[Rfam]
RNA sequence: UAGGGUGACUAGCCAUCAGGGUUUGCCUGGGACUGUCCUGUGUCCUGGGAAACACUGAAGUCCCAGGCAAACCAGGAAGGUUGGUCACUGAAGCCUC
Numbered sequence: 001u002a003g004g005g006u007g008a009c010u011a012g013c014c015a016u017c018a019g020g021g022u023u024u025g026c027c028u029g030g031g032a033c034u035g036u037c038c039u040g041u042g043u044c045c046u047g048g049g050a051a052a053c054a055c056u057g058a059a060g061u062c063c064c065a066g067g068c069a070a071a072c073c074a075g076g077a078a079g080g081u082u083g084g085u086c087a088c089u090g091a092a093g094c095c096u097c
Stems, first nucleotide, its partner, number of pairs: 001090002005088010020073015038057001040055003
This 97-nucleotide RNA belongs to the Rfam family "mir-584 microRNA precursor family". Rfam's curators put it in the seed alignment. The base pairs follow the family's consensus structure, which was predicted with RNAalifold.